This 104-nucleotide RNA sequence from Adhaeribacter pallidiroseus belongs to the Rfam family "Bacteroidales small SRP".
RNA sequence: UUUGCAGUGGCAAAUCGGCACGACCAGCUCCUGCUGAACUCCCCCAGGUUCGGAAGGAAGCAAGGGUAGGUGGUUGAGCGGUGCGAUGUUCGGUUUGCCACUUU
Numbered sequence: 001u002u003u004g005c006a007g008u009g010g011c012a013a014a015u016c017g018g019c020a021c022g023a024c025c026a027g028c029u030c031c032u033g034c035u036g037a038a039c040u041c042c043c044c045c046a047g048g049u050u051c052g053g054a055a056g057g058a059a060g061c062a063a064g065g066g067u068a069g070g071u072g073g074u075u076g077a078g079c080g081g082u083g084c085g086a087u088g089u090u091c092g093g094u095u096u097g098c099c100a101c102u103u104u
Base pairs, nucleotide, nucleotide: 008100009099010098011097012096013095014094015093018089019088020087021085022084023082024081
The family's consensus secondary structure is taken from published work.